[Rfam]
RNA sequence: UAAUUGAGGACAGUUCCUCUCCCUCUAGCACACAGAGGUCAAACUGGGUGCAACUCCCCCCCCUUCCGUGGGUAACGGAAACC
Numbered sequence: 001u002a003a004u005u006g007a008g009g010a011c012a013g014u015u016c017c018u019c020u021c022c023c024u025c026u027a028g029c030a031c032a033c034a035g036a037g038g039u040c041a042a043a044c045u046g047g048g049u050g051c052a053a054c055u056c057c058c059c060c061c062c063c064u065u066c067c068g069u070g071g072g073u074a075a076c077g078g079a080a081a082c083c
Base pairs, nucleotide, nucleotide: 006019007018008017009016010015013051022038023037024036025035026034046058047057048056060072061071062070065079066078067077068076069075
About this RNA
The family of this 83-nucleotide RNA from Tymovirus physalis is "Tymovirus/Pomovirus/Furovirus tRNA-like 3' UTR element". It is annotated as a cis-regulatory element. Pairs were carried over by alignment from the consensus structure, which is taken from published work. This family represents a tRNA-like structure found in the 3' UTR of Tymoviruses, Pomoviruses and Furovirus. NCBI's taxonomy places the organism under Viruses, Riboviria, Kitrinoviricota, Tymovirales, Tymovirus physalis. On this family, see Matsuda and Dreher, Virology 2004: "The tRNA-like structure of Turnip yellow mosaic virus RNA is a 3'-translational enhancer".